[Rfam]
RNA sequence: AUCACUUCUUGGCCUUUUGGCUAGGAUCAAGUGUAGUACCUGCUCUUAUCAGUUGAAUAUCUGCCAUGUCCUCUCUCUGAGGACAAUAUAUCACAAGACUUUGGCACCAGGAGAUGGAACAGGAACUUGCUCCGUCCACUCCAUGCAUCGACCUGUGUUCCCAGUACUCCCAGGAAUGGUGCACCUUUU
Numbered sequence: 001a002u003c004a005c006u007u008c009u010u011g012g013c014c015u016u017u018u019g020g021c022u023a024g025g026a027u028c029a030a031g032u033g034u035a036g037u038a039c040c041u042g043c044u045c046u047u048a049u050c051a052g053u054u055g056a057a058u059a060u061c062u063g064c065c066a067u068g069u070c071c072u073c074u075c076u077c078u079g080a081g082g083a084c085a086a087u088a089u090a091u092c093a094c095a096a097g098a099c100u101u102u103g104g105c106a107c108c109a110g111g112a113g114a115u116g117g118a119a120c121a122g123g124a125a126c127u128u129g130c131u132c133c134g135u136c137c138a139c140u141c142c143a144u145g146c147a148u149c150g151a152c153c154u155g156u157g158u159u160c161c162c163a164g165u166a167c168u169c170c171c172a173g174g175a176a177u178g179g180u181g182c183a184c185c186u187u188u189u
Stems, first nucleotide, its partner, number of pairs: 007026003011022004047066001050063003068084006110142004116136002122133003145182006152174004157169001
Rfam assigns this 189-nucleotide sequence from Panthera tigris to the family "U2 spliceosomal RNA". By type it is a spliceosomal small nuclear RNA. A search with the family's covariance model found it, with a score of 130 bits. The base pairs follow the family's consensus structure, which is taken from published work. Taxonomically the source falls in Panthera tigris (Eukaryota, Deuterostomia, Mammalia, Carnivora). Clan: U2 clan. Rfam describes the family as follows. U2 is a small nuclear RNA (snRNA) component of the spliceosome (involved in pre-mRNA splicing).